[Rfam]
RNA sequence: GACUUAAAGAUAUACUCAAUCUACGGAUAGAGUGUACUCUUCUAGACUUUUGUCUACUCCCCUCAACUAAACGAAAUUUUUGCCAUAUGUUUAUGGCUAAUUGAAAUUUCAGUCGGUUGUUAACAUACUUGCACAAGUGUCGUGCAUGUCGCCAGUCCCUCCUUUCAGUUCCGUCUGUUAGGUAUACUAGGUGGCUGCCUUUGGUUCAGUUCCGUCUGGCCAUUGUGUGGAUAGUACGUUCCGUCGUGCUUGAAACCGAUAACUAGCAGGUAUGUCGUCCAACCUUGUGACAUUGGCUU
Numbered sequence: 001g002a003c004u005u006a007a008a009g010a011u012a013u014a015c016u017c018a019a020u021c022u023a024c025g026g027a028u029a030g031a032g033u034g035u036a037c038u039c040u041u042c043u044a045g046a047c048u049u050u051u052g053u054c055u056a057c058u059c060c061c062c063u064c065a066a067c068u069a070a071a072c073g074a075a076a077u078u079u080u081u082g083c084c085a086u087a088u089g090u091u092u093a094u095g096g097c098u099a100a101u102u103g104a105a106a107u108u109u110c111a112g113u114c115g116g117u118u119g120u121u122a123a124c125a126u127a128c129u130u131g132c133a134c135a136a137g138u139g140u141c142g143u144g145c146a147u148g149u150c151g152c153c154a155g156u157c158c159c160u161c162c163u164u165u166c167a168g169u170u171c172c173g174u175c176u177g178u179u180a181g182g183u184a185u186a187c188u189a190g191g192u193g194g195c196u197g198c199c200u201u202u203g204g205u206u207c208a209g210u211u212c213c214g215u216c217u218g219g220c221c222a223u224u225g226u227g228u229g230g231a232u233a234g235u236a237c238g239u240u241c242c243g244u245c246g247u248g249c250u251u252g253a254a255a256c257c258g259a260u261a262a263c264u265a266g267c268a269g270g271u272a273u274g275u276c277g278u279c280c281a282a283c284c285u286u287g288u289g290a291c292a293u294u295g296g297c298u299u
Stems, first nucleotide, its partner, number of pairs: 008040003016031002019028003043056005073110007082097006117282003124274008136264002138261005151192003161182003166177003202222004207218003227256002233250006

Rfam assigns this 299-nucleotide RNA from Alphacoronavirus pusilli to the family "Alphacoronavirus 5'UTR". It is annotated as a cis-regulatory element. Gene Ontology term of the family: viral RNA genome replication. The source organism's lineage runs through Viruses, Riboviria, Pisoniviricetes, Coronaviridae and Miniopterus bat coronavirus 1. The match comes from Rfam's covariance-model search (212 bits). Its Rfam clan is "Coronavirus 5' UTR". From the family's description: The first 150 to 200 nucleotides within the 5' UTR of alphacoronaviruses are highly structured and shown to be conserved on the structural level among alphacoronaviruses. The 5' UTR has been predicted to contain 3 conserved stem-loops: SL1, SL2 and SL4.